[Rfam]
RNA sequence: CAAAGAUUUUGUUAGGUGAGGCUCCUGCAAAGAUAUAUGCUGCUGCCCAGAAAAAUCGAGAGAUUCCAAUGGGUCAACAGGAAUAAUCGCGAAGGUUAUUUCUAAUGUAGCUGACCAAAGGUCAAAGCUUUGCAGUGCUAAAGCUCAACAAGGAAGAAAUAUU
Numbered sequence: 001c002a003a004a005g006a007u008u009u010u011g012u013u014a015g016g017u018g019a020g021g022c023u024c025c026u027g028c029a030a031a032g033a034u035a036u037a038u039g040c041u042g043c044u045g046c047c048c049a050g051a052a053a054a055a056u057c058g059a060g061a062g063a064u065u066c067c068a069a070u071g072g073g074u075c076a077a078c079a080g081g082a083a084u085a086a087u088c089g090c091g092a093a094g095g096u097u098a099u100u101u102c103u104a105a106u107g108u109a110g111c112u113g114a115c116c117a118a119a120g121g122u123c124a125a126a127g128c129u130u131u132g133c134a135g136u137g138c139u140a141a142a143g144c145u146c147a148a149c150a151a152g153g154a155a156g157a158a159a160u161a162u163u
Stems, first nucleotide, its partner, number of pairs: 007157004011149002013093001015145003020139003025135008039111005045074005054065004080102004086096003113123003
RNA: M-box riboswitch aptamer (ykoK leader)